[Rfam]
RNA sequence: ACGAUCACGCUUCCUUAUCACUUGUUCGUCACAGUUGAUAAUUGUAUACUGGACGGAGAACUGAUAAGGGCUUGUGGUCAA
Numbered sequence: 001a002c003g004a005u006c007a008c009g010c011u012u013c014c015u016u017a018u019c020a021c022u023u024g025u026u027c028g029u030c031a032c033a034g035u036u037g038a039u040a041a042u043u044g045u046a047u048a049c050u051g052g053a054c055g056g057a058g059a060a061c062u063g064a065u066a067a068g069g070g071c072u073u074g075u076g077g078u079c080a081a
Stems, first nucleotide, its partner, number of pairs: 012070009022060002025057003030052001
Shown here is an 81-nucleotide RNA sequence from Mytilus coruscus, a member of the family "mir-184 microRNA precursor family". The match comes from Rfam's covariance-model search (62 bits).